[Rfam]
Shown here is a 69-nucleotide RNA from Electrophorus electricus, a member of the family "mir-375 microRNA precursor family". Gene Ontology terms of the family: RISC complex and miRNA-mediated post-transcriptional gene silencing.
RNA sequence: CUUGACGUUGAGCCACGCGCACAAUACCUGAGGAUACCUGCCGUUUUGUUCGUUCGGCUCGCGUUACGC
Numbered sequence: 001c002u003u004g005a006c007g008u009u010g011a012g013c014c015a016c017g018c019g020c021a022c023a024a025u026a027c028c029u030g031a032g033g034a035u036a037c038c039u040g041c042c043g044u045u046u047u048g049u050u051c052g053u054u055c056g057g058c059u060c061g062c063g064u065u066a067c068g069c
Base pairs, nucleotide, nucleotide: 001068003066005064006063007062009061010060011059012058013057014056018052019051021049022048023047024046026044027043
The organism belongs to Electrophorus, within Eukaryota.